[Rfam]
RNA sequence: CGUGCGGGCCGGGCCCCUCUGGCGGUUGGAUUGGUGUGACAUGAUCCAGCCGCGAUGUCGGACCGCAUCG
Numbered sequence: 001c002g003u004g005c006g007g008g009c010c011g012g013g014c015c016c017c018u019c020u021g022g023c024g025g026u027u028g029g030a031u032u033g034g035u036g037u038g039a040c041a042u043g044a045u046c047c048a049g050c051c052g053c054g055a056u057g058u059c060g061g062a063c064c065g066c067a068u069c070g
Stems, first nucleotide, its partner, number of pairs: 006064002009061004022053012
This 70-nucleotide RNA from Sphingobium sp. TKS belongs to the Rfam family "terC RNA". The family has 129 seed sequences and 1,112 matches in Rfam 15.1. The match comes from Rfam's covariance-model search (62 bits). It is annotated as a cis-regulatory element.